[Rfam]
RNA: Small nucleolar RNA SNORD11B
RNA sequence: AACAAGCUGUGAUGAUGAUGACCAUGCGUCAUUUUGCUGAAAAAUCAUGAGGCUUUUUUGUCACUACCUCAUCUGAGCUUGUU
Numbered sequence: 001a002a003c004a005a006g007c008u009g010u011g012a013u014g015a016u017g018a019u020g021a022c023c024a025u026g027c028g029u030c031a032u033u034u035u036g037c038u039g040a041a042a043a044a045u046c047a048u049g050a051g052g053c054u055u056u057u058u059u060g061u062c063a064c065u066a067c068c069u070c071a072u073c074u075g076a077g078c079u080u081g082u083u
Base pairs, nucleotide, nucleotide: 002082003081004080005079006078007077